[Rfam]
The family of this 32-nucleotide RNA sequence from Fructilactobacillus lindneri is "L31-Firmicutes ribosomal protein leader". Taxonomically the source falls in Fructilactobacillus lindneri (Bacteria, Bacillati, Bacilli, Lactobacillaceae). Pairs were carried over by alignment from the consensus structure, which is taken from published work. On this family, see Eckert and Weinberg, BMC Microbiol 2020: "Discovery of 20 novel ribosomal leader candidates in bacteria and archaea". Its Rfam clan is "Ribosomal Protein L31 Leader clan".
RNA sequence: CUCUGGAUUUUAUAAAUUCAGGGCAAAAGGAG
Numbered sequence: 001c002u003c004u005g006g007a008u009u010u011u012a013u014a015a016a017u018u019c020a021g022g023g024c025a026a027a028a029g030g031a032g
Stems, first nucleotide, its partner, number of pairs: 001023005008016002